[Rfam]
RNA sequence: GGCUGUAAUGGUCUUAAAGUGAGGAGACCUCUUCAUCUGCUAGUGUCUUUCCCAUUCAUCAUCUGACAGCGAUGUGCCAAGUUCGAACUCGGUGGCGUUAUUCCACUCGUGCAGGUAACUCACGAUUGCUGGCGAUAACUUAAGAACGGGAGAUAAACUUGAGUCAAGCAAUUGGGCAGAGAACUCCCUCCAUCGGGUGGCGGUACUUGAAUACACUUGCUUCGGUAAGGGAAAGGUAGAGCGGCUUGAGCGUCGACUUUUUUUU
Numbered sequence: 001g002g003c004u005g006u007a008a009u010g011g012u013c014u015u016a017a018a019g020u021g022a023g024g025a026g027a028c029c030u031c032u033u034c035a036u037c038u039g040c041u042a043g044u045g046u047c048u049u050u051c052c053c054a055u056u057c058a059u060c061a062u063c064u065g066a067c068a069g070c071g072a073u074g075u076g077c078c079a080a081g082u083u084c085g086a087a088c089u090c091g092g093u094g095g096c097g098u099u100a101u102u103c104c105a106c107u108c109g110u111g112c113a114g115g116u117a118a119c120u121c122a123c124g125a126u127u128g129c130u131g132g133c134g135a136u137a138a139c140u141u142a143a144g145a146a147c148g149g150g151a152g153a154u155a156a157a158c159u160u161g162a163g164u165c166a167a168g169c170a171a172u173u174g175g176g177c178a179g180a181g182a183a184c185u186c187c188c189u190c191c192a193u194c195g196g197g198u199g200g201c202g203g204u205a206c207u208u209g210a211a212u213a214c215a216c217u218u219g220c221u222u223c224g225g226u227a228a229g230g231g232a233a234a235g236g237u238a239g240a241g242c243g244g245c246u247u248g249a250g251c252g253u254c255g256a257c258u259u260u261u262u263u264u265u
Stems, first nucleotide, its partner, number of pairs: 001013003017263003021259003026254003030250001032248001035246001037244001039242003044238010055227001057225001064224003068221005074216003078209005083203003087198009097139001099137004103132003107125005113120002140144001148188005158181003165174003
A member of the RNA family "Fungal signal recognition particle RNA" from Venturia nashicola, 265 nucleotides long. The organism belongs to Venturia, within Eukaryota. It scores 116 bits against the family's covariance model. Its Rfam clan is "SRP clan". The family's RNA type in Rfam is non-coding RNA gene.